[Rfam]
RNA sequence: CAUGCGGUGUCAGUCUGUGUACUCGAUAGCGGCAUGGCUUCAAAUUGAGGU
Numbered sequence: 001c002a003u004g005c006g007g008u009g010u011c012a013g014u015c016u017g018u019g020u021a022c023u024c025g026a027u028a029g030c031g032g033c034a035u036g037g038c039u040u041c042a043a044a045u046u047g048a049g050g051u
Stems, first nucleotide, its partner, number of pairs: 001036005007030002011025001012023003